[Rfam]
Description
The record is a 73-nucleotide RNA sequence from Corymbia citriodora, which matches "Small nucleolar RNA snoR60" in Rfam. A search with the family's covariance model found it, with a score of 76 bits.
RNA sequence: AUGCACAUGAAGAAUUAACUCGGAUUCCCCUUCAAGACAGCAUAGGUGAUGCAAGCUCGAGUUUUCUGAUGCA
Numbered sequence: 001a002u003g004c005a006c007a008u009g010a011a012g013a014a015u016u017a018a019c020u021c022g023g024a025u026u027c028c029c030c031u032u033c034a035a036g037a038c039a040g041c042a043u044a045g046g047u048g049a050u051g052c053a054a055g056c057u058c059g060a061g062u063u064u065u066c067u068g069a070u071g072c073a
Base pairs, nucleotide, nucleotide: 002073003072004071005070

The family's consensus secondary structure was predicted with PFOLD.
Its Rfam clan is "SNORD101 clan".
Its family is annotated with nucleolus and RNA processing in the Gene Ontology.